Rfam assigns this 73-nucleotide RNA from Catenibacillus scindens to the family "tRNA". From the family's description: Transfer RNA (tRNA) molecules are approximately 80 nucleotides in length.

RNA sequence: GCUGCCUUGGCUCAGUCGGUAGAGCGUCGCCUUGGUAAGGCGGAGGUCGGGGGUUCAAGUCCCCUAGGCAGCU
Numbered sequence: 001g002c003u004g005c006c007u008u009g010g011c012u013c014a015g016u017c018g019g020u021a022g023a024g025c026g027u028c029g030c031c032u033u034g035g036u037a038a039g040g041c042g043g044a045g046g047u048c049g050g051g052g053g054u055u056c057a058a059g060u061c062c063c064c065u066a067g068g069c070a071g072c073u
Base pairs, nucleotide, nucleotide: 001072002071003070004069005068006067007066010025011024012023013022027043028042029041030040031039049065050064051063052062053061

It is annotated as a transfer RNA.